[Rfam]
RNA sequence: UAUUGUGGUGGUUUCUGUAUCUGGCAGAUCUGUAACUGUAUCAGAGCGGCCUUAAACUACCACAAAGAUCAGAAAGGAGGACGAGUGUUCUGAGAACUCUUUCAGGCUUUUAAGUUUUCAGUUUUUUGUUCAACUCCUACAGAA
Numbered sequence: 001u002a003u004u005g006u007g008g009u010g011g012u013u014u015c016u017g018u019a020u021c022u023g024g025c026a027g028a029u030c031u032g033u034a035a036c037u038g039u040a041u042c043a044g045a046g047c048g049g050c051c052u053u054a055a056a057c058u059a060c061c062a063c064a065a066a067g068a069u070c071a072g073a074a075a076g077g078a079g080g081a082c083g084a085g086u087g088u089u090c091u092g093a094g095a096a097c098u099c100u101u102u103c104a105g106g107c108u109u110u111u112a113a114g115u116u117u118u119c120a121g122u123u124u125u126u127u128g129u130u131c132a133a134c135u136c137c138u139a140c141a142g143a144a
Stems, first nucleotide, its partner, number of pairs: 005063007023051003027047001029045004076137004080089003104127003
About this RNA: This 144-nucleotide RNA sequence from Apteryx australis belongs to the Rfam family "Small nucleolar RNA SNORA12". The source organism's lineage runs through Eukaryota, Craniata, Gnathostomata, Euteleostomi and Apteryx. It is annotated as an H/ACA-box small nucleolar RNA. For this family Rfam cites "A novel experimental approach for systematic identification of box H/ACA snoRNAs from eukaryotes" (Gu et al., Nucleic Acids Res, 2005). Rfam describes the family as follows. U108 belongs to the H/ACA family of snoRNAs. The sequence is predicted to guide the pseudouridylation of the U372 residue in the 28S rRNA subunit. However it has not been reported as a pseudouridylation site.